[Rfam]
RNA sequence: GUGCAAUGAUGCAUUUUCUUAAUCAACACAUCAUUCUGAAAACAUGUGUAGAUAAGUAAUAACUGAGCACA
Numbered sequence: 001g002u003g004c005a006a007u008g009a010u011g012c013a014u015u016u017u018c019u020u021a022a023u024c025a026a027c028a029c030a031u032c033a034u035u036c037u038g039a040a041a042a043c044a045u046g047u048g049u050a051g052a053u054a055a056g057u058a059a060u061a062a063c064u065g066a067g068c069a070c071a
Stems, first nucleotide, its partner, number of pairs: 001070004
Rfam assigns this 71-nucleotide sequence from Microtus ochrogaster to the family "Small nucleolar RNA SNORD63". A reference for the family is Galardi et al. (2002), "Purified box C/D snoRNPs are able to reproduce site-specific 2'-O-methylation of target RNA in vitro", Mol Cell Biol. NCBI's taxonomy places the organism under Eukaryota, Sarcopterygii, Euarchontoglires, Muroidea, Microtus. It scores 80 bits against the family's covariance model. The family's consensus secondary structure was predicted with PFOLD.